A member of the RNA family "Eukaryotic large subunit ribosomal RNA" from Tetrahymena pyriformis, 286 nucleotides of a longer RNA.

RNA sequence: GAGUCUAUCAAUUAAGCGAGUGAUAGGGUGGAGAAACCCGUCCGCGAAACGAAAGUGAGUACAAGGUGCCAAGCCGCAAGGUAGCAGCAUCACCCGACCUAGAUUCUCCGAAGAAGGGUUCGAGGAAGAGCUUAAUUGUUAGGACCCGAAAGAUGGUGAACUACGCUUGAAUAGGGUGAAGCCAGGGGAAACUCUGGUGGAAGCUCGUAGCGAUACUGACGUGCAAAUCGUUCGUCAAAUUUGAGUGUAGGGGCGAAAGACUAAUCGAACCAUCUAGUAGCUGGUU
Numbered sequence: 001g002a003g004u005c006u007a008u009c010a011a012u013u014a015a016g017c018g019a020g021u022g023a024u025a026g027g028g029u030g031g032a033g034a035a036a037c038c039c040g041u042c043c044g045c046g047a048a049a050c051g052a053a054a055g056u057g058a059g060u061a062c063a064a065g066g067u068g069c070c071a072a073g074c075c076g077c078a079a080g081g082u083a084g085c086a087g088c089a090u091c092a093c094c095c096g097a098c099c100u101a102g103a104u105u106c107u108c109c110g111a112a113g114a115a116g117g118g119u120u121c122g123a124g125g126a127a128g129a130g131c132u133u134a135a136u137u138g139u140u141a142g143g144a145c146c147c148g149a150a151a152g153a154u155g156g157u158g159a160a161c162u163a164c165g166c167u168u169g170a171a172u173a174g175g176g177u178g179a180a181g182c183c184a185g186g187g188g189a190a191a192c193u194c195u196g197g198u199g200g201a202a203g204c205u206c207g208u209a210g211c212g213a214u215a216c217u218g219a220c221g222u223g224c225a226a227a228u229c230g231u232u233c234g235u236c237a238a239a240u241u242u243g244a245g246u247g248u249a250g251g252g253g254c255g256a257a258a259g260a261c262u263a264a265u266c267g268a269a270c271c272a273u274c275u276a277g278u279a280g281c282u283g284g285u286u
Base pairs, nucleotide, nucleotide: 005142006141007140009138010137011136012135013134014133015132016131017130020045021044022043026039027038028037029036049056050055065091066090067089068088069087073082074081093125094124095122096121097120098118099117100116104112105111145284146283148281152274153273154272155271156270157269161250162249163248164247165246166245167244168243169242170241171240172238174206175205176204177203181198182197183196184195185194186193187192210235211234212233213232215231216230218229219228252262253261